[Rfam]
RNA sequence: GCCACAUGAUGAGUUUGAGUAGCGUCAGCAGCUCUCGGGGCCAUGAUGACCUGCUAUCUAUCACCCCUUACUGAUGGCU
Numbered sequence: 001g002c003c004a005c006a007u008g009a010u011g012a013g014u015u016u017g018a019g020u021a022g023c024g025u026c027a028g029c030a031g032c033u034c035u036c037g038g039g040g041c042c043a044u045g046a047u048g049a050c051c052u053g054c055u056a057u058c059u060a061u062c063a064c065c066c067c068u069u070a071c072u073g074a075u076g077g078c079u
Stems, first nucleotide, its partner, number of pairs: 001078004031041004